[Rfam]
RNA sequence: GGGGGCUGGGGACGGGCUGCUGGGUGGCGGGUCGCUGGCCCAGCCUGGUCCCUGCCAGCCUCCCCCGUGCCCCAGAUCAGCUCCCAGGAGCCCCACACGGGAGUUCUCCCAUGCAGUAACAGGUGUGAGCAUCCAUGCAGCAUUUUGAUGGUCAUGUAUGAUACUGCAUACAAUA
Numbered sequence: 001g002g003g004g005g006c007u008g009g010g011g012a013c014g015g016g017c018u019g020c021u022g023g024g025u026g027g028c029g030g031g032u033c034g035c036u037g038g039c040c041c042a043g044c045c046u047g048g049u050c051c052c053u054g055c056c057a058g059c060c061u062c063c064c065c066c067g068u069g070c071c072c073c074a075g076a077u078c079a080g081c082u083c084c085c086a087g088g089a090g091c092c093c094c095a096c097a098c099g100g101g102a103g104u105u106c107u108c109c110c111a112u113g114c115a116g117u118a119a120c121a122g123g124u125g126u127g128a129g130c131a132u133c134c135a136u137g138c139a140g141c142a143u144u145u146u147g148a149u150g151g152u153c154a155u156g157u158a159u160g161a162u163a164c165u166g167c168a169u170a171c172a173a174u175a
Stems, first nucleotide, its partner, number of pairs: 003072004008066003015060004019055002022052001024051001026045003030041001031039003084101002087098001111169008120160002126154003130150004137144001